[Rfam]
RNA sequence: ACGCCGCCUCCCCUGGCGGCGCUCAAGCUCCCCUGUGGGGCCUCUGAAGGCGGGGAUGGUGCCGUGUCGGCGCAGCACCAUCCCCGCCGA
Numbered sequence: 001a002c003g004c005c006g007c008c009u010c011c012c013c014u015g016g017c018g019g020c021g022c023u024c025a026a027g028c029u030c031c032c033c034u035g036u037g038g039g040g041c042c043u044c045u046g047a048a049g050g051c052g053g054g055g056a057u058g059g060u061g062c063c064g065u066g067u068c069g070g071c072g073c074a075g076c077a078c079c080a081u082c083c084c085c086g087c088c089g090a
Stems, first nucleotide, its partner, number of pairs: 002021006023047003027043001030040003050087013064073003